Record summary:
This 133-nucleotide sequence from a Syntrophomonadaceae bacterium belongs to the Rfam family "Molybdenum/Tungsten riboswitch aptamer (Moco RNA motif)". The family's consensus secondary structure is taken from published work. The family has 160 seed sequences and 1,248 matches in Rfam 15.1.
RNA sequence: UAACAAAAAUAUCUCCGAGCCGUUUAGUCUAAAGCCAUUGCAAUGACUUGCGGCCCUCUGCCUGUUGGGCAGAAAGGUUUGGCGGGAAAUCGCCAAGCCUCCCGGUUGGAAAGGAGUCUUGAGGAGGCCCAAA
Numbered sequence: 001u002a003a004c005a006a007a008a009a010u011a012u013c014u015c016c017g018a019g020c021c022g023u024u025u026a027g028u029c030u031a032a033a034g035c036c037a038u039u040g041c042a043a044u045g046a047c048u049u050g051c052g053g054c055c056c057u058c059u060g061c062c063u064g065u066u067g068g069g070c071a072g073a074a075a076g077g078u079u080u081g082g083c084g085g086g087a088a089a090u091c092g093c094c095a096a097g098c099c100u101c102c103c104g105g106u107u108g109g110a111a112a113g114g115a116g117u118c119u120u121g122a123g124g125a126g127g128c129c130c131a132a133a
Stems, first nucleotide, its partner, number of pairs: 004126001011119001013116004019054005026048004034041002058072005075100011101109002